Source information
A member of the RNA family "Archaeal RNase P" from Natronobacterium gregoryi, 474 nucleotides long.
[Rfam]
RNA sequence: GGGAGAGAGAGCCCGGCUGCCGCGGGCGUCGUGCGACGCGCGCGAGGAAAGUCCCCCCACCUGUUCGGGCAGGUGACCAGACGCAAGUCCGGGGCGGGAGACCGCUGGCUCUGGAACAGAAACGACACGUCUCGGCCCGACCGAUGAUGCGUGCGAACCCGACCGCGAGGAAGGGGAGUUGACCCGCAGAGGGAGUGUGGUCGGUAUCCCGUGGUUCGAAUCCACGGAUUGCGAGCGCGGUUCGACGCGUCUCUGACGCGGGACCCGCGACCGAGUGCGACGGCACGAGCCGUCGAACACGCACGGCGCGAUUGACCACACUGAGACGGCCGAGGAGCGAUGGAACGGCGAACCCUCACCGGUGCAAGUCCGUGCCGUGGUAGCCCGAACAUCUCGCGGCUCCGCCGCGAACGGCGCGGACGCUUAGCCGAAUGCUGGGACGAACAGAAGGGGGCUUACUCCUCUCACCCGUUU
Numbered sequence: 001g002g003g004a005g006a007g008a009g010a011g012c013c014c015g016g017c018u019g020c021c022g023c024g025g026g027c028g029u030c031g032u033g034c035g036a037c038g039c040g041c042g043c044g045a046g047g048a049a050a051g052u053c054c055c056c057c058c059a060c061c062u063g064u065u066c067g068g069g070c071a072g073g074u075g076a077c078c079a080g081a082c083g084c085a086a087g088u089c090c091g092g093g094g095c096g097g098g099a100g101a102c103c104g105c106u107g108g109c110u111c112u113g114g115a116a117c118a119g120a121a122a123c124g125a126c127a128c129g130u131c132u133c134g135g136c137c138c139g140a141c142c143g144a145u146g147a148u149g150c151g152u153g154c155g156a157a158c159c160c161g162a163c164c165g166c167g168a169g170g171a172a173g174g175g176g177a178g179u180u181g182a183c184c185c186g187c188a189g190a191g192g193g194a195g196u197g198u199g200g201u202c203g204g205u206a207u208c209c210c211g212u213g214g215u216u217c218g219a220a221u222c223c224a225c226g227g228a229u230u231g232c233g234a235g236c237g238c239g240g241u242u243c244g245a246c247g248c249g250u251c252u253c254u255g256a257c258g259c260g261g262g263a264c265c266c267g268c269g270a271c272c273g274a275g276u277g278c279g280a281c282g283g284c285a286c287g288a289g290c291c292g293u294c295g296a297a298c299a300c301g302c303a304c305g306g307c308g309c310g311a312u313u314g315a316c317c318a319c320a321c322u323g324a325g326a327c328g329g330c331c332g333a334g335g336a337g338c339g340a341u342g343g344a345a346c347g348g349c350g351a352a353c354c355c356u357c358a359c360c361g362g363u364g365c366a367a368g369u370c371c372g373u374g375c376c377g378u379g380g381u382a383g384c385c386c387g388a389a390c391a392u393c394u395c396g397c398g399g400c401u402c403c404g405c406c407g408c409g410a411a412c413g414g415c416g417c418g419g420a421c422g423c424u425u426a427g428c429c430g431a432a433u434g435c436u437g438g439g440a441c442g443a444a445c446a447g448a449a450g451g452g453g454g455c456u457u458a459c460u461c462c463u464c465u466c467a468c469c470c471g472u473u474u
Stems, first nucleotide, its partner, number of pairs: 001470003005466005010460002012439006021044004049457003053454005058364004065389001068386001072360005077092002080089002093106005107355002112351001114349001128339003131334007148299002368421009

Rfam's curators write: Ribonuclease P (RNase P) is a ubiquitous endoribonuclease, found in archaea, bacteria and eukarya as well as chloroplasts and mitochondria. Its best characterised activity is the generation of mature 5'-ends of tRNAs by cleaving the 5'-leader elements of precursor-tRNAs. Its Rfam clan is "RNaseP clan". The source organism's lineage runs through Archaea, Methanobacteriati, Methanobacteriota, Halobacteriales and Natronobacterium. The family's consensus secondary structure is taken from published work. The family's RNA type in Rfam is ribozyme.